RNA sequence: UUAAGCGAGUAAAGUAAAUAAAUGCACAGCUCCUGUUUACAGGAUAGCUGUGCAUUUUAUUUAUUUUACGAACAAACACCGUGAGGAAGUAGCACGAUAGUGCGGAUUCCGAAUGGUGUUUGAGGAUUACGAGAGCGUAGCGGAGUAAUCCUCGCUUAA
Numbered sequence: 001u002u003a004a005g006c007g008a009g010u011a012a013a014g015u016a017a018a019u020a021a022a023u024g025c026a027c028a029g030c031u032c033c034u035g036u037u038u039a040c041a042g043g044a045u046a047g048c049u050g051u052g053c054a055u056u057u058u059a060u061u062u063a064u065u066u067u068a069c070g071a072a073c074a075a076a077c078a079c080c081g082u083g084a085g086g087a088a089g090u091a092g093c094a095c096g097a098u099a100g101u102g103c104g105g106a107u108u109c110c111g112a113a114u115g116g117u118g119u120u121u122g123a124g125g126a127u128u129a130c131g132a133g134a135g136c137g138u139a140g141c142g143g144a145g146u147a148a149u150c151c152u153c154g155c156u157u158a159a
Base pairs, nucleotide, nucleotide: 001159002158003157004156005155006154007153010068011067012066013065016061017060020057021056022055023054024053025052026051027050028049029048030047031046032043033042034041035040075120076119077118078117079116080115081114082113085110086109087108088107092103093102094101095100124151125150126149127148128147129146130145135141136140
Dot-bracket structure: (((((((..((((..((..((((((((((((((((....))))..))))))))))))..))...))))......((((((((..((((...((((....))))...))))..))))))))...(((((((....((...))...))))))).)))))))